About this RNA
A member of the RNA family "mir-9195 microRNA precursor family" from Myotis brandtii, 87 nucleotides long. NCBI's taxonomy places the organism under Eukaryota, Opisthokonta, Bilateria, Tetrapoda, Myotis. The match comes from Rfam's covariance-model search (91 bits).
RNA sequence: AGAGGCCCUCUGAGGCCAGGGUAGGAUGCUUGCCUCGUCGCCACGGCAAUGAAGCAAGCGUUCUGCCAGGCCGCUCAUGCUGCCCGC
Dot-bracket structure: ...(((.....(.((((..((((((((((((((...((.((....)).))...)))))))))))))).)))).).......)))...
Numbered sequence: 001a002g003a004g005g006c007c008c009u010c011u012g013a014g015g016c017c018a019g020g021g022u023a024g025g026a027u028g029c030u031u032g033c034c035u036c037g038u039c040g041c042c043a044c045g046g047c048a049a050u051g052a053a054g055c056a057a058g059c060g061u062u063c064u065g066c067c068a069g070g071c072c073g074c075u076c077a078u079g080c081u082g083c084c085c086g087c
Stems, first nucleotide, its partner, number of pairs: 004084003012074001014072004020067014037050002040047002